[Rfam]
RNA sequence: GCGGAAGGCUGGAUGGCCGCGGGAUCGCGAGAUUCCGAGGAAAGUCCGGACUCCCUGAAGCAACGGUGCCGGGUAACGCCCGGGCGGGGCAACCCGACGGAUCAGCGCCACAGAAAACAGACCGCCUCGUAUGUCGCUCGCGAUAUACCGGGUCAGGGUGAAACGGUGGGGUAAGAGCCCACCGGGGGGCUGGCAACAGCGCCCGCAUGGCAAGCCCCACCGGGAGCAAUGCCAAAUAGGGGCCUCGCGCGCGGCUGAUCGCCUUCGGGGGAUAUCGGCGCAGGGAUGCUUCAGCCCGAGAGGCCCGGGUUGGCAGCUAGAGGCGCGGGGGCAAUCCCGUGCCAAGAGGAAUGGUCAUCGGCGGUCGUCAGACCGUCACAGAAUCCGGCUUACAGGCCUUCCGCGCAU
Number, nucleotide and partner (000 for none) at each position: 001g404002c403003g402004g401005a400006a399007g398008g397009c396010u395011g393012g359013a358014u357015g356016g355017c354018c353019g000020c037021g036022g035023g034024a033025u032026c031027g000028c000029g000030a000031g026032a025033u024034u023035c022036c021037g020038a000039g000040g000041a000042a391043a390044g389045u000046c388047c387048g386049g385050a384051c226052u225053c224054c223055c000056u000057g000058a000059a000060g291061c000062a000063a000064c222065g221066g220067u219068g218069c083070c082071g081072g080073g079074u000075a000076a000077c000078g000079c073080c072081c071082g070083g069084g098085c096086g095087g094088g093089g000090c000091a000092a000093c088094c087095c086096g085097a000098c084099g217100g216101a000102u000103c000104a000105g215106c214107g211108c210109c209110a000111c000112a000113g000114a000115a000116a000117a000118c000119a000120g000121a000122c157123c156124g153125c152126c151127u150128c000129g148130u147131a146132u145133g144134u143135c142136g141137c000138u000139c000140g000141c136142g135143a134144u133145a132146u131147a130148c129149c000150g127151g126152g125153u124154c000155a000156g123157g122158g000159u000160g000161a000162a000163a000164c000165g183166g182167u181168g180169g179170g178171g000172u000173a000174a000175g000176a000177g000178c170179c169180c168181a167182c166183c165184g206185g204186g203187g202188g000189g200190c199191u198192g197193g000194c000195a000196a000197c192198a191199g190200c189201g000202c187203c186204c185205g000206c184207a000208u000209g109210g108211c107212a000213a000214g106215c105216c100217c099218c068219a067220c066221c065222g064223g054224g053225a052226g051227c000228a000229a000230u315231g314232c313233c312234a000235a000236a000237u000238a000239g000240g306241g305242g304243c303244c302245u301246c000247g000248c000249g000250c000251g000252c000253g000254g000255c000256u000257g000258a000259u000260c000261g000262c000263c000264u000265u000266c000267g000268g000269g000270g000271g000272a000273u000274a000275u000276c000277g000278g000279c000280g000281c000282a000283g297284g296285g295286a000287u293288g000289c000290u000291u060292c000293a287294g000295c285296c284297c283298g000299a000300g000301a245302g244303g243304c242305c241306c240307g000308g000309g000310u000311u000312g233313g232314c231315a230316g000317c000318u000319a000320g000321a000322g000323g342324c341325g340326c339327g338328g337329g336330g335331g000332c000333a000334a000335u330336c329337c328338c327339g326340u325341g324342c323343c000344a000345a000346g000347a000348g000349g000350a000351a000352u000353g018354g017355u016356c015357a014358u013359c012360g000361g000362c000363g000364g000365u000366c000367g000368u000369c000370a000371g000372a000373c000374c000375g000376u000377c000378a000379c000380a000381g000382a000383a000384u050385c049386c048387g047388g046389c044390u043391u042392a000393c011394a000395g010396g009397c008398c007399u006400u005401c004402c003403g002404c001405g000406c000407a000408u000

This 408-nucleotide RNA sequence from Marinovum algicola belongs to the Rfam family "Bacterial RNase P class A".